[Rfam]
Nucleotides: 074
Stems, first nucleotide, its partner, number of pairs: 001073007010026004028044005050066005
Number, partner (000 for none) and nucleotide at each position: 001073c002072c003071c004070g005069c006068g007067a008000u009000a010026g011025u012024u013023c014000a015000g016000a017000u018000u019000g020000g021000u022000a023013g024012a025011a026010c027000g028044g029043c030042g031041g032040a033000c034000u035000g036000u037000a038000g039000a040032u041031c042030c043029g044028c045000a046000u047000g048000u049000c050066g051065c052064u053063g054062g055000u056000u057000c058000a059000a060000a061000u062054c063053c064052g065051g066050c067007u068006c069005g070004c071003g072002g073001g074000a

Shown here is a 74-nucleotide RNA sequence from Methanococcus vannielii, a member of the family "tRNA".
NCBI's taxonomy places the organism under Archaea, Methanobacteriati, Methanobacteriota, Methanococcales, Methanococcus.
The base pairs follow the family's consensus structure, which is taken from published work.
About the family: Transfer RNA (tRNA) molecules are approximately 80 nucleotides in length.